[Rfam]
RNA sequence: GUAAAGACGUUGAAGGGGAAGAGUAGUAGCAAUGCCUUCAGAGAGCGGAACCGGUGCGCUGAGAGGUUCUGCAGGAUGUUUAGCUGCAACAAGUCACCCCAGAGUUGCUCGAAUGAACGAUGUUAUCGUUAGUUCAAGCCGGCCACAGCCGUUAUCUGUUUGAGUUGUCGCUUAGCAUGACUUAAGCGAAACAAAGGUGGUACCGCGGAAGCAAAACCUUUCGUCCUUUGC
Numbered sequence: 001g002u003a004a005a006g007a008c009g010u011u012g013a014a015g016g017g018g019a020a021g022a023g024u025a026g027u028a029g030c031a032a033u034g035c036c037u038u039c040a041g042a043g044a045g046c047g048g049a050a051c052c053g054g055u056g057c058g059c060u061g062a063g064a065g066g067u068u069c070u071g072c073a074g075g076a077u078g079u080u081u082a083g084c085u086g087c088a089a090c091a092a093g094u095c096a097c098c099c100c101a102g103a104g105u106u107g108c109u110c111g112a113a114u115g116a117a118c119g120a121u122g123u124u125a126u127c128g129u130u131a132g133u134u135c136a137a138g139c140c141g142g143c144c145a146c147a148g149c150c151g152u153u154a155u156c157u158g159u160u161u162g163a164g165u166u167g168u169c170g171c172u173u174a175g176c177a178u179g180a181c182u183u184a185a186g187c188g189a190a191a192c193a194a195a196g197g198u199g200g201u202a203c204c205g206c207g208g209a210a211g212c213a214a215a216a217c218c219u220u221u222c223g224u225c226c227u228u229u230g231c
Stems, first nucleotide, its partner, number of pairs: 007105002015100004026087005036075003047070006108138002111135004140151003168189007194228004205224007
Overview: This 231-nucleotide RNA sequence from Paenibacillus baekrokdamisoli belongs to the Rfam family "T-box leader". About the family: Uncharged tRNA acts as the effector for transcription antitermination of genes in the T-box leader family. T-boxes are found upstream of many aminoacyl-tRNA synthetase genes and some amino acid biosynthetic genes usually in Gram-positive bacteria. The anticodon of a specific tRNA base pairs to a specifier sequence within the T-box motif, and the NCCA acceptor tail of the tRNA base pairs to a conserved bulge in the T-box antiterminator hairpin. By type it is a cis-regulatory leader. Taxonomically the source falls in Paenibacillus (Bacteria, Bacillati, Bacillota, Bacilli).